[Rfam]
RNA sequence: GUCGUCGCGAGGCGGGGUGUGGAGUAACCGGAAGCGAACUGUCGGUCCGUAGGUUAACGAACCUGUUUCGGCGGGGUAUGGCGGCGAGCCUGCACUAAAGUGGCGAAGCCUGGAAGUAACACAGCACGCUGUCGUGGCGGACAAAGCGGUGCCGUGGCAUACCACGUGAUUGAGGACGGAACGAUGGGACGGUGG
Numbered sequence: 001g002u003c004g005u006c007g008c009g010a011g012g013c014g015g016g017g018u019g020u021g022g023a024g025u026a027a028c029c030g031g032a033a034g035c036g037a038a039c040u041g042u043c044g045g046u047c048c049g050u051a052g053g054u055u056a057a058c059g060a061a062c063c064u065g066u067u068u069c070g071g072c073g074g075g076g077u078a079u080g081g082c083g084g085c086g087a088g089c090c091u092g093c094a095c096u097a098a099a100g101u102g103g104c105g106a107a108g109c110c111u112g113g114a115a116g117u118a119a120c121a122c123a124g125c126a127c128g129c130u131g132u133c134g135u136g137g138c139g140g141a142c143a144a145a146g147c148g149g150u151g152c153c154g155u156g157g158c159a160u161a162c163c164a165c166g167u168g169a170u171u172g173a174g175g176a177c178g179g180a181a182c183g184a185u186g187g188g189a190c191g192g193u194g195g
Base pairs, nucleotide, nucleotide: 002015003014004013005012006011034193035192039187040186041185042184043183045182046180047179048178049177050176062175063174064173071167072166073165075163076162077161078160079159080158083110084109085108088104089103090102
Dot-bracket structure: .(((((....)))))..................((...(((((.((((((...........(((......(((.((((((..(((..(((...........)))...)))...............................................)))))).))).....)))))))).))))))....))..